Record summary:
The record is a 77-nucleotide sequence from Pan troglodytes, which matches "mir-1278 microRNA precursor family" in Rfam. Lineage of the source: Eukaryota > Teleostomi > Eutheria > Primates > Pan. Its family is annotated with RISC complex and miRNA-mediated post-transcriptional gene silencing in the Gene Ontology.
RNA sequence: UUUGCUCAUAGAUGAUAUGCAUAGUACUCCCAGAACUCAUUAAGUUGGUAGUACUGUGCAUAUCAUCUGUGAGCGAA
Numbered sequence: 001u002u003u004g005c006u007c008a009u010a011g012a013u014g015a016u017a018u019g020c021a022u023a024g025u026a027c028u029c030c031c032a033g034a035a036c037u038c039a040u041u042a043a044g045u046u047g048g049u050a051g052u053a054c055u056g057u058g059c060a061u062a063u064c065a066u067c068u069g070u071g072a073g074c075g076a077a
Base pairs, nucleotide, nucleotide: 001077002076003075004074005073006072007071008070009069010068011067012066013065014064015063016062017061018060019059020058021057022056023055024054025053026052027051028050030048031047032046035045036044037043